The family of this 94-nucleotide RNA sequence from Gymnorhina tibicen is "Small nucleolar RNA SNORD91 family". The match comes from Rfam's covariance-model search (60 bits).
[Rfam]
RNA sequence: UGAGGAAGCCUAUGAUGUCUCUGCCGUGGUGUCUGAACCUGGCUGAAGAAGGACUCUUGUGAAGACUCUUUUUGGCUCUGAGGCUUCCAGAGCA
Number, nucleotide and partner (000 for none) at each position: 001u000002g000003a000004g088005g087006a086007a085008g084009c083010c082011u000012a000013u000014g000015a000016u000017g000018u000019c000020u000021c000022u000023g000024c000025c000026g000027u000028g000029g000030u000031g000032u000033c000034u000035g000036a000037a000038c000039c000040u000041g000042g000043c000044u000045g000046a000047a000048g000049a000050a000051g000052g000053a000054c000055u000056c000057u000058u000059g000060u000061g000062a000063a000064g000065a000066c000067u000068c000069u000070u000071u000072u000073u000074g000075g000076c000077u000078c000079u000080g000081a000082g010083g009084c008085u007086u006087c005088c004089a000090g000091a000092g000093c000094a000
Rfam 15.1 lists 977 matches to the family in 495 species. The source organism's lineage runs through Eukaryota, Metazoa, Bilateria, Passeriformes and Gymnorhina. On this family, see Huttenhofer et al., EMBO J 2001: "RNomics: an experimental approach that identifies 201 candidates for novel, small, non-messenger RNAs in mouse". Gene Ontology terms of the family: nucleolus and RNA processing.